RNA sequence: UUACCGAGGGAGGUCUUCCACCAUCGAGAAUGAGGGAAGAAGUCAGCAGAGGUCAUAGUAAUUAUUGGUAACGAGCCUUGAAAACAAGGAGGACUCACCAGAUGACGAAGGAC
Numbered sequence: 001u002u003a004c005c006g007a008g009g010g011a012g013g014u015c016u017u018c019c020a021c022c023a024u025c026g027a028g029a030a031u032g033a034g035g036g037a038a039g040a041a042g043u044c045a046g047c048a049g050a051g052g053u054c055a056u057a058g059u060a061a062u063u064a065u066u067g068g069u070a071a072c073g074a075g076c077c078u079u080g081a082a083a084a085c086a087a088g089g090a091g092g093a094c095u096c097a098c099c100a101g102a103u104g105a106c107g108a109a110g111g112a113c
Base pairs, nucleotide, nucleotide: 001030002029005026006025007024009022010021043050044049052113053112054111062105063104064103065102066101